[Rfam]
RNA sequence: UGAGAUAACUCUGGUUAAGGAACUCGGCAAAAUAACACCGUAACUUCGGGAGAAGGUGUGCCCUCAUCAGGUGUAGCGAUACGCACGCGAAGCCGAAGGGGGUCGCAGAGAAAUGGCGGUAGCGACUGUUUACUAAAAACACAGCACUCUGCAAACUCGCAAGAGGAAGUAUAGGGUGUGACGCCUGCCCGGUGCCGGAAGGUUAAGGGGAUUUGUUAGCGCAAGCGAAGCUUUGAACCGAAGCCCCGGUAAACGGCGGCCGUAACUAUAACGGUCCUAAGGUAGCGAAAUUCCUUGUCGGGUAAGUUCCGACCUGCACGAAUGGCGUAACGACUUCCGCACUGUCUCAACCAGAGACUCA
Numbered sequence: 001u002g003a004g005a006u007a008a009c010u011c012u013g014g015u016u017a018a019g020g021a022a023c024u025c026g027g028c029a030a031a032a033u034a035a036c037a038c039c040g041u042a043a044c045u046u047c048g049g050g051a052g053a054a055g056g057u058g059u060g061c062c063c064u065c066a067u068c069a070g071g072u073g074u075a076g077c078g079a080u081a082c083g084c085a086c087g088c089g090a091a092g093c094c095g096a097a098g099g100g101g102g103u104c105g106c107a108g109a110g111a112a113a114u115g116g117c118g119g120u121a122g123c124g125a126c127u128g129u130u131u132a133c134u135a136a137a138a139a140c141a142c143a144g145c146a147c148u149c150u151g152c153a154a155a156c157u158c159g160c161a162a163g164a165g166g167a168a169g170u171a172u173a174g175g176g177u178g179u180g181a182c183g184c185c186u187g188c189c190c191g192g193u194g195c196c197g198g199a200a201g202g203u204u205a206a207g208g209g210g211a212u213u214u215g216u217u218a219g220c221g222c223a224a225g226c227g228a229a230g231c232u233u234u235g236a237a238c239c240g241a242a243g244c245c246c247c248g249g250u251a252a253a254c255g256g257c258g259g260c261c262g263u264a265a266c267u268a269u270a271a272c273g274g275u276c277c278u279a280a281g282g283u284a285g286c287g288a289a290a291u292u293c294c295u296u297g298u299c300g301g302g303u304a305a306g307u308u309c310c311g312a313c314c315u316g317c318a319c320g321a322a323u324g325g326c327g328u329a330a331c332g333a334c335u336u337c338c339g340c341a342c343u344g345u346c347u348c349a350a351c352c353a354g355a356g357a358c359u360c361a
Stems, first nucleotide, its partner, number of pairs: 001361004009356008018347003035059005044049001060103006071084005104108001116340004121335002123332002127141003144179008152169001156165003182327004187257003192254002194250005201245003207239002215231002219226002258276006277281001287314001297313006
RNA: Bacterial large subunit ribosomal RNA, nucleotides 1703 to 2063
Organism: Trichloromonas acetexigens